[Rfam]
RNA sequence: UAAAUAGGAAGUUCGGUUAAGUUCGCACAUCGUGUGCCAACUUAGAACGCCCCCACGUCCUGUGGG
Numbered sequence: 001u002a003a004a005u006a007g008g009a010a011g012u013u014c015g016g017u018u019a020a021g022u023u024c025g026c027a028c029a030u031c032g033u034g035u036g037c038c039a040a041c042u043u044a045g046a047a048c049g050c051c052c053c054c055a056c057g058u059c060c061u062g063u064g065g066g
Base pairs, nucleotide, nucleotide: 011048012047013046014045016043025037026036027035028034052066053065054064055063056062
Dot-bracket structure: ..........((((.(........((((.....)))).....).))))...(((((.....)))))
The family of this 66-nucleotide sequence from Halobacillus andaensis is "Bacillaceae-1 RNA". By type it is a small RNA. Taxonomically the source falls in Halobacillus (Bacteria, Bacillati, Bacilli, Bacillaceae). A search with the family's covariance model found it, with a score of 40 bits. The base pairs follow the family's consensus structure, which is taken from published work.